[Rfam]
RNA: Small nucleolar RNA snoR104
Organism: Coffea canephora
RNA sequence: GGGGAGCAUCAAAUAGUUGAGAUGUUUCCUGAUAUAGUCUUCCUACAAAAAAAUCUGUGUGAUUUCCUGCUUGUGGUUCUUGAGCAAGUUCUACAGGUCUCAAGCUGACAGAUACAUGA
Numbered sequence: 001g002g003g004g005a006g007c008a009u010c011a012a013a014u015a016g017u018u019g020a021g022a023u024g025u026u027u028c029c030u031g032a033u034a035u036a037g038u039c040u041u042c043c044u045a046c047a048a049a050a051a052a053a054u055c056u057g058u059g060u061g062a063u064u065u066c067c068u069g070c071u072u073g074u075g076g077u078u079c080u081u082g083a084g085c086a087a088g089u090u091c092u093a094c095a096g097g098u099c100u101c102a103a104g105c106u107g108a109c110a111g112a113u114a115c116a117u118g119a
Stems, first nucleotide, its partner, number of pairs: 001030003005026006056112001058110001069098008079088002
Dot-bracket structure: (((.((((((..........)))))).))).........................(.(..........((((((((..((......))..))))))))...........).).......